[Rfam]
RNA: c-di-GMP-I riboswitch aptamer
RNA sequence: UUUAAUAAAAGGCAAACUUACUGAAAAGUAAGGACGCAAAGCUAGAGUCUAAAGUAAAAUACUAUGACAGUUCGGCUGCUUUG
Numbered sequence: 001u002u003u004a005a006u007a008a009a010a011g012g013c014a015a016a017c018u019u020a021c022u023g024a025a026a027a028g029u030a031a032g033g034a035c036g037c038a039a040a041g042c043u044a045g046a047g048u049c050u051a052a053a054g055u056a057a058a059a060u061a062c063u064a065u066g067a068c069a070g071u072u073c074g075g076c077u078g079c080u081u082u083g
Stems, first nucleotide, its partner, number of pairs: 012037002017032006040077004045073002047068003054062003